[Rfam]
RNA sequence: UUCCCGGCACAACGGCUUCCUGGCGUGCCGGGCGAUUUUCAAUGGAGCA
Number, nucleotide and partner (000 for none) at each position: 001u000002u000003c000004c031005c030006g029007g028008c027009a026010c025011a000012a000013c022014g021015g048016c047017u046018u000019c045020c044021u014022g013023g000024c000025g010026u009027g008028c007029c006030g005031g004032g000033c000034g000035a000036u000037u000038u000039u000040c000041a000042a000043u000044g020045g019046a017047g016048c015049a000

The record is a 49-nucleotide RNA sequence from Limimaricola hongkongensis, which matches "SAM/SAH riboswitch aptamer" in Rfam. Rfam links the family to the GO terms S-adenosylmethionine metabolic process and regulation of gene expression. A reference for the family is Weickhmann et al. (2019), "The structure of the SAM/SAH-binding riboswitch", Nucleic Acids Res. The family's consensus secondary structure is taken from published work. The match comes from Rfam's covariance-model search (59 bits).